Overview:
The family of this 66-nucleotide RNA from Lederbergia lenta is "Bacillaceae-1 RNA". It scores 67 bits against the family's covariance model. The family has 95 seed sequences and 5,721 matches in Rfam 15.1. Lineage of the source: Bacteria > Bacillota > Bacilli > Caryophanales > Lederbergia. The family's RNA type in Rfam is small RNA.

[Rfam]
RNA sequence: UAUUAAGGUUCGUCGACUAAAACCGCCACAUCGUGUGGCAACGUCGACGCACCCACACCCUGUGGG
Number, nucleotide and partner (000 for none) at each position: 001u000002a000003u000004u000005a000006a000007g000008g000009u000010u000011c049012g048013u047014c046015g045016a044017c043018u000019a000020a000021a000022a000023c000024c000025g039026c038027c037028a036029c035030a000031u000032c000033g000034u000035g029036u028037g027038g026039c025040a000041a000042c000043g017044u016045c015046g014047a013048c012049g011050c000051a000052c066053c065054c064055a063056c062057a000058c000059c000060c000061u000062g056063u055064g054065g053066g052